[Rfam]
This 106-nucleotide RNA sequence from Canis lupus belongs to the Rfam family "mir-8834 microRNA precursor family".
Gene Ontology terms of the family: RISC complex and miRNA-mediated post-transcriptional gene silencing.
A search with the family's covariance model found it, with a score of 56 bits.

RNA sequence: UGGAGGAACAACCACAGGGGUGGCGGCAGCUCUGGAGCCCUGGAGCCAGCCCCUGCAGUAACUACGGAGCUCUCAGUCUGCAGGGGACUGGAUGCUCCGGGGCGGG
Numbered sequence: 001u002g003g004a005g006g007a008a009c010a011a012c013c014a015c016a017g018g019g020g021u022g023g024c025g026g027c028a029g030c031u032c033u034g035g036a037g038c039c040c041u042g043g044a045g046c047c048a049g050c051c052c053c054u055g056c057a058g059u060a061a062c063u064a065c066g067g068a069g070c071u072c073u074c075a076g077u078c079u080g081c082a083g084g085g086g087a088c089u090g091g092a093u094g095c096u097c098c099g100g101g102g103c104g105g106g
Base pairs, nucleotide, nucleotide: 002098003097004096005095007093009090010089012085013084019078020077021076023074025072028071029070030069031068032067033066034065036063040058041057042056